[Rfam]
RNA sequence: AAGUAAGGAACAGUGACUAAGGGCGCUACGUCCUGUAGCAACGUCACUGUGACUCUCAUCCUGAGAG
Numbered sequence: 001a002a003g004u005a006a007g008g009a010a011c012a013g014u015g016a017c018u019a020a021g022g023g024c025g026c027u028a029c030g031u032c033c034u035g036u037a038g039c040a041a042c043g044u045c046a047c048u049g050u051g052a053c054u055c056u057c058a059u060c061c062u063g064a065g066a067g
Stems, first nucleotide, its partner, number of pairs: 011049007025039005053067005